[Rfam]
RNA sequence: UUUUCCGAGGAGCGUUGCAGCGCCAUCAGGCGUGAGGCUCGGAAUUCAUCCCCCGCAACGACGCUCGCCCACC
Number, nucleotide and partner (000 for none) at each position: 001u000002u000003u044004u043005c042006c041007g040008a039009g000010g000011a000012g000013c000014g000015u000016u000017g000018c000019a000020g000021c032022g031023c030024c029025a000026u000027c000028a000029g024030g023031c022032g021033u000034g000035a000036g000037g000038c000039u008040c007041g006042g005043a004044a003045u000046u000047c000048a000049u000050c000051c000052c000053c000054c000055g000056c000057a000058a000059c000060g000061a000062c000063g000064c000065u000066c000067g000068c000069c000070c000071a000072c000073c000
RNA: SAH (S-adenosyl-L-homocysteine) riboswitch aptamer
Organism: Xylophilus rhododendri